[Rfam]
RNA sequence: AAUCUAACAAAUAAUCACCCUCGUAUAAUAAUGGGAAUAUGGCCCAUAAGUCUCUACCCGGUAACCGUAAAUCUCCGGACUAUGAGGGAAAGUUUCGUGACC
Numbered sequence: 001a002a003u004c005u006a007a008c009a010a011a012u013a014a015u016c017a018c019c020c021u022c023g024u025a026u027a028a029u030a031a032u033g034g035g036a037a038u039a040u041g042g043c044c045c046a047u048a049a050g051u052c053u054c055u056a057c058c059c060g061g062u063a064a065c066c067g068u069a070a071a072u073c074u075c076c077g078g079a080c081u082a083u084g085a086g087g088g089a090a091a092g093u094u095u096c097g098u099g100a101c102c
Stems, first nucleotide, its partner, number of pairs: 018088008029049001031047005058078004064072001
Source information:
Shown here is a 102-nucleotide sequence from Cytobacillus horneckiae, a member of the family "Purine riboswitch aptamer". Rfam's curators write: Riboswitches are metabolite binding domains within certain messenger RNAs that serve as precision sensors for their corresponding targets. It scores 87 bits against the family's covariance model.